SAM-I/IV (S-adenosyl methionine) riboswitch aptamer: a 102-nucleotide RNA from Aliiruegeria lutimaris. The family's consensus secondary structure is taken from published work. On this family, see Trausch et al., PNAS 2014: "Structural basis for diversity in the SAM clan of riboswitches".
RNA sequence: CCUUUGCAUCAAGAGCCGGGAAACCGGCACCAACCUGCUGCUCCAGCAAGGUGGUAGCCCUCACGGGCGAUGCGGCUGAAACAGGCAACUAAAGGAGGCCCA
Numbered sequence: 001c002c003u004u005u006g007c008a009u010c011a012a013g014a015g016c017c018g019g020g021a022a023a024c025c026g027g028c029a030c031c032a033a034c035c036u037g038c039u040g041c042u043c044c045a046g047c048a049a050g051g052u053g054g055u056a057g058c059c060c061u062c063a064c065g066g067g068c069g070a071u072g073c074g075g076c077u078g079a080a081a082c083a084g085g086c087a088a089c090u091a092a093a094g095g096a097g098g099c100c101c102a
Stems, first nucleotide, its partner, number of pairs: 006073005015028005029055003034051003037047003041098002044095001075086003